This 76-nucleotide sequence from Alligator mississippiensis belongs to the Rfam family "Mammalian CPEB3 ribozyme". Pairs were carried over by alignment from the consensus structure, which is taken from published work. Lineage of the source: Eukaryota > Craniata > Euteleostomi > Alligatoridae > Alligator. The match comes from Rfam's covariance-model search (35 bits). The literature on the family includes a 2006 paper in Science by Salehi-Ashtiani et al., "A genomewide search for ribozymes reveals an HDV-like sequence in the human CPEB3 gene".

[Rfam]
RNA sequence: AUAAUUCAUAAAUGGCCAUAGCAGAAAUGCUUAUGGUGCAGUCCUGUCAGAUUCCAGCAAAUCUGUAAAUACUGCU
Numbered sequence: 001a002u003a004a005u006u007c008a009u010a011a012a013u014g015g016c017c018a019u020a021g022c023a024g025a026a027a028u029g030c031u032u033a034u035g036g037u038g039c040a041g042u043c044c045u046g047u048c049a050g051a052u053u054c055c056a057g058c059a060a061a062u063c064u065g066u067a068a069a070u071a072c073u074g075c076u
Stems, first nucleotide, its partner, number of pairs: 014043003020076005026070001028038002048065006